RNA: Small Cajal body-specific RNA 7
RNA sequence: UGGAAAUGAUGAGGCAGAGAUAAUUGGGUGUUGAAUGUUGUGUGAUUGAAUAGUAUGUAAGUAAUUCACCUAAGUUAAUAGCUACUUGAUUGAGAGUGCGUGUGUGUGUGUGUGCGUGCGUGUGUGCUGGUGGAGGCUAUGGAAAGGGGGCACUGACUGGUGAUGCUGAUAUUGGAGUGCAUCUGAGGCUGUUGUAGAAAUACAUGGGUUGUUGAUUACAACAUUGCCAAUGAUUAUAAUCCAAGAACAGCUCACCUAAGUAGCCUAGCACCCUAAAAUCUCUAACAGGUUCAUUAAACAUGGUCCUGUGAUCUGAUCCAA
Numbered sequence: 001u002g003g004a005a006a007u008g009a010u011g012a013g014g015c016a017g018a019g020a021u022a023a024u025u026g027g028g029u030g031u032u033g034a035a036u037g038u039u040g041u042g043u044g045a046u047u048g049a050a051u052a053g054u055a056u057g058u059a060a061g062u063a064a065u066u067c068a069c070c071u072a073a074g075u076u077a078a079u080a081g082c083u084a085c086u087u088g089a090u091u092g093a094g095a096g097u098g099c100g101u102g103u104g105u106g107u108g109u110g111u112g113u114g115c116g117u118g119c120g121u122g123u124g125u126g127c128u129g130g131u132g133g134a135g136g137c138u139a140u141g142g143a144a145a146g147g148g149g150g151c152a153c154u155g156a157c158u159g160g161u162g163a164u165g166c167u168g169a170u171a172u173u174g175g176a177g178u179g180c181a182u183c184u185g186a187g188g189c190u191g192u193u194g195u196a197g198a199a200a201u202a203c204a205u206g207g208g209u210u211g212u213u214g215a216u217u218a219c220a221a222c223a224u225u226g227c228c229a230a231u232g233a234u235u236a237u238a239a240u241c242c243a244a245g246a247a248c249a250g251c252u253c254a255c256c257u258a259a260g261u262a263g264c265c266u267a268g269c270a271c272c273c274u275a276a277a278a279u280c281u282c283u284a285a286c287a288g289g290u291u292c293a294u295u296a297a298a299c300a301u302g303g304u305c306c307u308g309u310g311a312u313c314u315g316a317u318c319c320a321a
Base pairs, nucleotide, nucleotide: 001320002319003318004317190223191222192221193220194219195218196217197216199213200212201211202210203208
Dot-bracket structure: ((((.........................................................................................................................................................................................((((((((.(((((....).))))..)))))))).............................................................................................)))).